Shown here is a 98-nucleotide sequence from Leptolyngbya sp. 'hensonii', a member of the family "Glutamine riboswitch aptamer (glnA leader)". Its family is annotated with glutamine binding in the Gene Ontology. On this family, see Ames and Breaker, RNA Biol 2011: "Bacterial aptamers that selectively bind glutamine". It scores 52 bits against the family's covariance model.
[Rfam]
RNA sequence: AUCGUUCAUCCCCACUAGGUAAGUAUAACUAGUCUGAAAGGAUAAGGUCUAUCCCAAGAAGGGGACGGAAGUAAGGGUCAUUCCUGAAGGAACGCGCU
Number, nucleotide and partner (000 for none) at each position: 001a000002u000003c094004g093005u092006u091007c090008a000009u065010c064011c063012c062013c061014a000015c000016u000017a000018g000019g000020u000021a000022a000023g000024u000025a000026u000027a000028a000029c000030u000031a000032g000033u000034c000035u000036g000037a000038a000039a000040g000041g000042a000043u000044a000045a000046g000047g000048u000049c000050u000051a000052u000053c000054c000055c000056a000057a000058g000059a000060a000061g013062g012063g011064g010065a009066c000067g000068g095069a000070a000071g000072u000073a000074a085075g084076g083077g000078u000079c000080a000081u000082u000083c076084c075085u074086g000087a000088a000089g000090g007091a006092a005093c004094g003095c068096g000097c000098u000